The record is a 393-nucleotide RNA from Mesobaculum littorinae, which matches "Bacterial RNase P class A" in Rfam. By type it is a ribozyme. On this family, see Frank and Pace, Annu Rev Biochem 1998: "Ribonuclease P: unity and diversity in a tRNA processing ribozyme". It scores 291 bits against the family's covariance model. NCBI's taxonomy places the organism under Bacteria, Pseudomonadota, Alphaproteobacteria, Rhodobacterales, Mesobaculum.
Nucleotides: 393
Stems, first nucleotide, its partner, number of pairs: 001389010011378001012338007020033005038376003042373005047211004055272002060207005065079005080094001081092004095202002100200002102196003117142002119138008150168006169191001170189003174185004215295004225286006263277004302321008
Number, partner (000 for none) and nucleotide at each position: 001389g002388c003387g004386g005385a006384u007383g008382g009381c010380c011378g012338g013337a014336u015335g016334g017333c018332c019000g020033c021032a022031c023030c024029c025000c026000u027000c028000g029024g030023g031022g032021u033020g034000a035000g036000g037000a038376a039375a040374g041000u042373c043372c044371g045370g046369a047211c048210u049209c050208c051000a052000c053000g054000a055272a056271g057000c058000g059000a060207c061206g062205g063204u064203g065079c066078c067077g068076g069075g070000u071000a072000a073000c074000g075069c076068c077067c078066g079065g080094g081092c082091g083090g084089g085000g086000u087000a088000a089084c090083c091082c092081g093000a094080c095202g096201g097000a098000a099000a100200g101199c102196g103195c104194c105000a106000c107000a108000g109000a110000a111000a112000a113000c114000a115000g116000a117142c118141c119138g120137c121136c122135u123134g124133c125132c126131c127000c128000c129000c130000g131126g132125g133124g134123c135122a136121g137120g138119u139000c140000a141118g142117g143000g144000u145000g146000a147000a148000a149000c150168g151167g152166u153165g154164g155163g156000g157000u158000a159000a160000g161000a162000g163155c164154c165153c166152a167151c168150c169191g170189c171188g172187g173000g174185c175184c176183g177182g178000g179000u180000a181000a182177c183176c184175g185174g186000g187172c188171c189170g190000g191169c192000a193000c194104g195103g196102c197000a198000a199101g200100c201096c202095c203064c204063a205062c206061c207060g208050g209049g210048a211047g212000c213000a214000a215295u216294g217293c218292c219000g220000a221000a222000u223000a224000g225286g226285g227284a228283u229282u230281c231000c232000g233000c234000g235000g236000a237000u238000g239000c240000g241000g242000c243000c244000c245000c246000c247000u248000u249000g250000c251000g252000g253000g254000g255000c256000g257000g258000u259000c260000c261000a262000g263277g264276g265275c266274u267000u268000u269000g270000c271056u272055u273000c274266g275265g276264c277263c278000c279000a280000g281230g282229a283228a284227u285226c286225c287000g288000g289000g290000u291000u292218g293217g294216c295215a296000g297000c298000a299000g300000g301000a302321u303320c304319c305318c306317g307316u308315c309314c310000g311000c312000a313000a314309g315308g316307g317306c318305g319304g320303g321302a322000c323000c324000a325000g326000a327000u328000g329000a330000a331000u332018g333017g334016u335015c336014a337013u338012c339000c340000a341000u342000g343000g344000g345000c346000g347000c348000c349000u350000u351000u352000g353000g354000g355000c356000g357000c358000u359000c360000g361000g362000g363000a364000c365000a366000g367000a368000a369046u370045c371044c372043g373042g374040c375039u376038u377000a378011c379000a380010g381009g382008c383007c384006a385005u386004c387003c388002g389001c390000g391000c392000a393000a